[Rfam]
Rfam assigns this 141-nucleotide RNA from Podarcis muralis to the family "Small nucleolar RNA SNORA51".
The family's RNA type in Rfam is H/ACA-box small nucleolar RNA.
Rfam's curators write: ACA51 is a member of the H/ACA class of snoRNA that guide the sites of modification of uridines to pseudouridines.
RNA sequence: AGUCUCCCUAUGCUUACCACAGGCAGCGUCACCACACAUGCUGACUGUAUAGAAACGGGAGAUAGAGAAUCGAUAGCCCUGCGUAUACACCACAGCCAGGCCGACUUUCCCCUGAGCUGUAUUGUUAGUACGGGUACAAAA
Numbered sequence: 001a002g003u004c005u006c007c008c009u010a011u012g013c014u015u016a017c018c019a020c021a022g023g024c025a026g027c028g029u030c031a032c033c034a035c036a037c038a039u040g041c042u043g044a045c046u047g048u049a050u051a052g053a054a055a056c057g058g059g060a061g062a063u064a065g066a067g068a069a070u071c072g073a074u075a076g077c078c079c080u081g082c083g084u085a086u087a088c089a090c091c092a093c094a095g096c097c098a099g100g101c102c103g104a105c106u107u108u109c110c111c112c113u114g115a116g117c118u119g120u121a122u123u124g125u126u127a128g129u130a131c132g133g134g135u136a137c138a139a140a141a
Base pairs, nucleotide, nucleotide: 002063003062004061005060006059007058008057020047021046022045026041027040028039029038079133080132081131083129084128093119094118095117097114098113099112100111